[Rfam]
RNA sequence: GUCAUACUACGGUGCAUCGUACGGUAAAGUAAACGAUGACCCUCAGGGAACUUCAGGUUAAAAUGCAUAUCAAAAUGCAAAAUCGUUCCUGACCUGGUGCUUUGCUCCGGGUCGGUUUUUUUU
Number, nucleotide and partner (000 for none) at each position: 001g040002u039003c038004a037005u036006a000007c000008u000009a000010c035011g034012g000013u000014g030015c029016a000017u000018c000019g000020u000021a000022c000023g000024g000025u000026a000027a000028a000029g015030u014031a000032a000033a000034c011035g010036a005037u004038g003039a002040c001041c048042c047043u000044c000045a000046g000047g042048g041049a000050a000051c000052u000053u000054c000055a000056g000057g071058u000059u069060a068061a000062a000063a000064u000065g000066c000067a000068u060069a059070u000071c057072a000073a000074a000075a000076u000077g000078c000079a000080a000081a000082a000083u000084c000085g000086u000087u000088c000089c115090u114091g113092a112093c111094c110095u109096g108097g107098u000099g000100c000101u000102u000103u000104g000105c000106u000107c097108c096109g095110g094111g093112u092113c091114g090115g089116u000117u000118u000119u000120u000121u000122u000123u000